[Rfam]
RNA sequence: AAAACGGCUCUUUUUAGAGCCACCAAAAUCUUUCAAAAAGAGUCUG
Numbered sequence: 001a002a003a004a005c006g007g008c009u010c011u012u013u014u015u016a017g018a019g020c021c022a023c024c025a026a027a028a029u030c031u032u033u034c035a036a037a038a039a040g041a042g043u044c045u046g
Stems, first nucleotide, its partner, number of pairs: 006021006
This 46-nucleotide RNA from Mytilus coruscus belongs to the Rfam family "Histone 3' UTR stem-loop". About the family: The mRNAs of metazoan histone genes lack a poly-A tail. 3' end processing occurs at a site between a highly conserved stem-loop (modelled by this family) and a purine rich region around 20 nts downstream (the histone downstream element, or HDE). The stem-loop is bound by a 31 kDa stem-loop binding protein (SLBP - also termed the histone hairpin binding protein, or HBP). Together with U7 snRNA binding of the HDE, SLBP binding nucleate s the formation of the processing complex. For this family Rfam cites "The sequence of the stem and flanking sequences at the 3' end of histone mRNA are critical determinants for the binding of the stem-loop binding protein" (Williams and Marzluff, Nucleic Acids Res, 1995). By type it is a cis-regulatory element. The organism belongs to Mytilus, within Eukaryota.